[Rfam]
RNA sequence: AUGAGGAUGAUGAAAUAAAUCAUUCGGAUUCCCAAUGAAUUUUUCUCUUUACAAUAGUUUUUAUUUGAAGAGAAAUGUGAUCUUAACAUAUUUCCAUUUCUGACUCAU
Numbered sequence: 001a002u003g004a005g006g007a008u009g010a011u012g013a014a015a016u017a018a019a020u021c022a023u024u025c026g027g028a029u030u031c032c033c034a035a036u037g038a039a040u041u042u043u044u045c046u047c048u049u050u051a052c053a054a055u056a057g058u059u060u061u062u063a064u065u066u067g068a069a070g071a072g073a074a075a076u077g078u079g080a081u082c083u084u085a086a087c088a089u090a091u092u093u094c095c096a097u098u099u100c101u102g103a104c105u106c107a108u
Base pairs, nucleotide, nucleotide: 001108002107003106004105005104
Rfam assigns this 108-nucleotide sequence from Centaurea solstitialis to the family "Small nucleolar RNA R12". For this family Rfam cites "The high diversity of snoRNAs in plants: identification and comparative study of 120 snoRNA genes from Oryza sativa" (Chen et al., Nucleic Acids Res, 2003). From the family's description: snoR12 is a C/D box small nucleolar RNA, which acts as a methylation guide for 25S ribosomal RNA in plants. snoR12 has been alternatively named snoZ44 in Arabidopsis and snoZ131 in rice. The family's RNA type in Rfam is C/D-box small nucleolar RNA.